[Rfam]
RNA sequence: AUGUUAAAAUUUAUACAGAUUUAAAUUCAGUAUGACAGUGUUUUUUAGUUAAAUAAUCAGCCCGCUUGGAUCUUGAAGACCGAGACGGAGGG
Number, nucleotide and partner (000 for none) at each position: 001a000002u000003g026004u024005u023006a022007a021008a020009a000010u019011u018012u000013a000014u000015a000016c000017a000018g011019a010020u008021u007022u006023a005024a004025a000026u003027u000028c000029a000030g000031u000032a000033u000034g000035a000036c000037a000038g000039u000040g000041u000042u000043u000044u000045u000046u000047a000048g000049u000050u000051a000052a000053a000054u000055a000056a000057u000058c000059a000060g000061c000062c088063c087064g086065c084066u083067u082068g081069g080070a000071u079072c078073u077074u000075g000076a000077a073078g072079a071080c069081c068082g067083a066084g065085a000086c064087g063088g062089a000090g000091g000092g000
Rfam assigns this 92-nucleotide RNA from Desulfosporosinus sp. HMP52 to the family "pan motif". The family's consensus secondary structure is taken from published work. By type it is a cis-regulatory element. Taxonomically the source falls in Desulfosporosinus (Bacteria, Bacillati, Bacillota, Eubacteriales).